[Rfam]
A member of the RNA family "Small nucleolar RNA snoR136" from Glycine max, 143 nucleotides long.
NCBI's taxonomy places the organism under Eukaryota, Embryophyta, Tracheophyta, Fabaceae, Glycine subgen. Soja.

RNA sequence: AAGGCUUCAGCUUUCUUUGAGUUUUUUGCUUGCACUUUUUUCAAUGUGUUUGGAAAUGUUUAAUUGAAGCCUAGAUGUGUGUUCCCCUCGCUAUCCAUUGUUGCAAUUUUGAUGCCGCAUUUGGACGUCGGGGAACUAAAUCG
Numbered sequence: 001a002a003g004g005c006u007u008c009a010g011c012u013u014u015c016u017u018u019g020a021g022u023u024u025u026u027u028g029c030u031u032g033c034a035c036u037u038u039u040u041u042c043a044a045u046g047u048g049u050u051u052g053g054a055a056a057u058g059u060u061u062a063a064u065u066g067a068a069g070c071c072u073a074g075a076u077g078u079g080u081g082u083u084c085c086c087c088u089c090g091c092u093a094u095c096c097a098u099u100g101u102u103g104c105a106a107u108u109u110u111g112a113u114g115c116c117g118c119a120u121u122u123g124g125a126c127g128u129c130g131g132g133g134a135a136c137u138a139a140a141u142c143g
Stems, first nucleotide, its partner, number of pairs: 003071003008066003013063001018058002026056002029053002034049002081136007089127002094125004103115003
Overview:
The family's consensus secondary structure was predicted with mfold. Gene Ontology terms of the family: RNA processing and nucleolus. The literature on the family includes a 2009 paper in Nucleic Acids Res by Chen and Wu, "Mining small RNA sequencing data: a new approach to identify small nucleolar RNAs in Arabidopsis".